[Rfam]
RNA sequence: ACGACCUUACUUGAACAGGAUCUGUUCUAUAGGAUCGUACCUCUGUAUCCUUGAUUUCUAAGGAGGCAGGUCACCAAGUCUGGUGGAUGACAAAAGACUGCUAGACCAGAGCGUGAUUAACAGCUCUUCUUGAUCUCUGCACCAUCAUGAGCCGUAGAGGAUCGUUCUCAGCCUGGUUUCCUGGCUGGGGUGGUCUAGCAGUUGUCUGACAGACC
Numbered sequence: 001a002c003g004a005c006c007u008u009a010c011u012u013g014a015a016c017a018g019g020a021u022c023u024g025u026u027c028u029a030u031a032g033g034a035u036c037g038u039a040c041c042u043c044u045g046u047a048u049c050c051u052u053g054a055u056u057u058c059u060a061a062g063g064a065g066g067c068a069g070g071u072c073a074c075c076a077a078g079u080c081u082g083g084u085g086g087a088u089g090a091c092a093a094a095a096g097a098c099u100g101c102u103a104g105a106c107c108a109g110a111g112c113g114u115g116a117u118u119a120a121c122a123g124c125u126c127u128u129c130u131u132g133a134u135c136u137c138u139g140c141a142c143c144a145u146c147a148u149g150a151g152c153c154g155u156a157g158a159g160g161a162u163c164g165u166u167c168u169c170a171g172c173c174u175g176g177u178u179u180c181c182u183g184g185c186u187g188g189g190g191u192g193g194u195c196u197a198g199c200a201g202u203u204g205u206c207u208g209a210c211a212g213a214c215c
Stems, first nucleotide, its partner, number of pairs: 001038002003035001005033003013027006043069004048064006078214005097202012110166004120155002123152004128147001131144002134141001167189007175181002